[Rfam]
RNA sequence: AUCGGUCUUCGGUAGUGGCUGCCGGAAUCCGCGGAACUGUUCCGCAGGGUUCCGACCGCUUCGAUCGACGGCCGUC
Numbered sequence: 001a002u003c004g005g006u007c008u009u010c011g012g013u014a015g016u017g018g019c020u021g022c023c024g025g026a027a028u029c030c031g032c033g034g035a036a037c038u039g040u041u042c043c044g045c046a047g048g049g050u051u052c053c054g055a056c057c058g059c060u061u062c063g064a065u066c067g068a069c070g071g072c073c074g075u076c
Stems, first nucleotide, its partner, number of pairs: 003074005009068005017060003021056001023054007